The record is a 71-nucleotide sequence from Gonapodya prolifera, which matches "HDV ribozyme from F. prausnitzii" in Rfam. A reference for the family is Webb et al. (2009), "Widespread occurrence of self-cleaving ribozymes", Science. Pairs were carried over by alignment from the consensus structure, which is taken from published work.

RNA sequence: GGGGUACACGGUGACUGCCUCCUCGUGGCGUACCCCGGGCAACGUUCGAUUUUCGAACGGCUGAAGUCACC
Numbered sequence: 001g002g003g004g005u006a007c008a009c010g011g012u013g014a015c016u017g018c019c020u021c022c023u024c025g026u027g028g029c030g031u032a033c034c035c036c037g038g039g040c041a042a043c044g045u046u047c048g049a050u051u052u053u054c055g056a057a058c059g060g061c062u063g064a065a066g067u068c069a070c071c
Stems, first nucleotide, its partner, number of pairs: 001036007017029003043059005

Notes: The source organism's lineage runs through Eukaryota, chytridiomyceta, Monoblepharomycota, Monoblepharidomycetes and Gonapodya prolifera. Rfam 15.1 lists 3,803 matches to the family in 91 species. It scores 45 bits against the family's covariance model.